The family of this 195-nucleotide RNA sequence from Synechococcus sp. CC9605 is "Cyano-2 RNA".
The family's RNA type in Rfam is small RNA.
RNA sequence: AGCAGCACGGGGAGAGCGACCCUGGGGCUGGCAGACGAGUUUCCCCGUUGAGAGGGAUCAAUGGGGAACCCUCUCUCUUAAAGCUGUAGAAAUUCAGUGCAUCAGGCGCAAAUCAGUGUGACGUGGCGAACGUGUUUAUGCGGAUAUCGCAUCGCUCGGGGAGGACUCGCUUCUCCUCGCGGUUCCGUGGCUCCA
Numbered sequence: 001a002g003c004a005g006c007a008c009g010g011g012g013a014g015a016g017c018g019a020c021c022c023u024g025g026g027g028c029u030g031g032c033a034g035a036c037g038a039g040u041u042u043c044c045c046c047g048u049u050g051a052g053a054g055g056g057a058u059c060a061a062u063g064g065g066g067a068a069c070c071c072u073c074u075c076u077c078u079u080a081a082a083g084c085u086g087u088a089g090a091a092a093u094u095c096a097g098u099g100c101a102u103c104a105g106g107c108g109c110a111a112a113u114c115a116g117u118g119u120g121a122c123g124u125g126g127c128g129a130a131c132g133u134g135u136u137u138a139u140g141c142g143g144a145u146a147u148c149g150c151a152u153c154g155c156u157c158g159g160g161g162a163g164g165a166c167u168c169g170c171u172u173c174u175c176c177u178c179g180c181g182g183u184u185c186c187g188u189g190g191c192u193c194c195a
Stems, first nucleotide, its partner, number of pairs: 003030004008024005031078001033076003037072001041068010140188005146183005158178008
The organism belongs to Synechococcus, within Bacteria.